A member of the RNA family "SAM (S-adenosyl methionine) riboswitch aptamer" from Microbacterium sp. ZXX196, 117 nucleotides long. Taxonomically the source falls in Microbacterium (Bacteria, Actinomycetota, Actinomycetes, Microbacteriaceae). Rfam describes the family as follows. SAM-IV is a mRNA element that regulates gene expression via direct sensing of S-adenosylmethionine (SAM or AdoMet). A search with the family's covariance model found it, with a score of 79 bits.

[Rfam]
RNA sequence: GUUCACGAGUUGCAACUGUCGGUACCUGGCCGGUUGCGCGGCAACCCCCUCCAUCGAGCGGGGUGCCCCAGGGGAAGAACGGGCCCGGCGCACACGCGUGACGGGCAAGUCGAUGGA
Numbered sequence: 001g002u003u004c005a006c007g008a009g010u011u012g013c014a015a016c017u018g019u020c021g022g023u024a025c026c027u028g029g030c031c032g033g034u035u036g037c038g039c040g041g042c043a044a045c046c047c048c049c050u051c052c053a054u055c056g057a058g059c060g061g062g063g064u065g066c067c068c069c070a071g072g073g074g075a076a077g078a079a080c081g082g083g084c085c086c087g088g089c090g091c092a093c094a095c096g097c098g099u100g101a102c103g104g105g106c107a108a109g110u111c112g113a114u115g116g117a
Stems, first nucleotide, its partner, number of pairs: 001080004009039001011038006021031002040067003045063003049058002083106005089100003